[Rfam]
RNA sequence: AUAUAGAUCUGGCAAAGCAGUCGAAAGGCUGUGACGCAAAGCUACAGGGCCUGUGAAAUGGCAGCCAGUUGCACGU
Numbered sequence: 001a002u003a004u005a006g007a008u009c010u011g012g013c014a015a016a017g018c019a020g021u022c023g024a025a026a027g028g029c030u031g032u033g034a035c036g037c038a039a040a041g042c043u044a045c046a047g048g049g050c051c052u053g054u055g056a057a058a059u060g061g062c063a064g065c066c067a068g069u070u071g072c073a074c075g076u
Base pairs, nucleotide, nucleotide: 012037013036017032018031019030020029021028022027040070041069042068043067047066048065049062050061051060
Shown here is a 76-nucleotide RNA sequence from Oscillospiraceae bacterium Marseille-Q3528, a member of the family "c-di-GMP-I riboswitch aptamer". Lineage of the source: Bacteria > Bacillati > Bacillota > Clostridia > Oscillospiraceae.